[Rfam]
RNA sequence: UUAGGCAAGUGGGGAGGCCAGGAUUCAGCCCUGGCCAGAGCCUGAUCUGUAACUGAUGUACCACUUCCUUUAUGACUUCUUUCUGUGCCUUAG
Number, nucleotide and partner (000 for none) at each position: 001u093002u092003a091004g090005g089006c000007a000008a000009g000010u000011g000012g000013g000014g000015a000016g000017g000018c000019c000020a000021g000022g000023a000024u000025u000026c000027a000028g000029c000030c000031c000032u000033g000034g000035c000036c000037a000038g000039a000040g000041c000042c000043u000044g000045a000046u000047c000048u000049g000050u000051a000052a000053c000054u000055g000056a000057u000058g000059u000060a000061c000062c000063a000064c000065u000066u000067c000068c000069u000070u000071u000072a000073u000074g000075a000076c000077u000078u000079c000080u000081u000082u000083c000084u000085g000086u000087g000088c000089c005090u004091u003092a002093g001
RNA: Small nucleolar RNA U83B
Organism: Sus scrofa